[Rfam]
RNA sequence: CUGGGCCUGCGAAUGGCACUGGAAGAAUUCACGGGCUUACUACUGGACCCGUGGACUUUUAGUGCCAUCCCCAGAGCCUU
Numbered sequence: 001c002u003g004g005g006c007c008u009g010c011g012a013a014u015g016g017c018a019c020u021g022g023a024a025g026a027a028u029u030c031a032c033g034g035g036c037u038u039a040c041u042a043c044u045g046g047a048c049c050c051g052u053g054g055a056c057u058u059u060u061a062g063u064g065c066c067a068u069c070c071c072c073a074g075a076g077c078c079u080u
Stems, first nucleotide, its partner, number of pairs: 003078002007074003013068006020061003023057001025056001029054006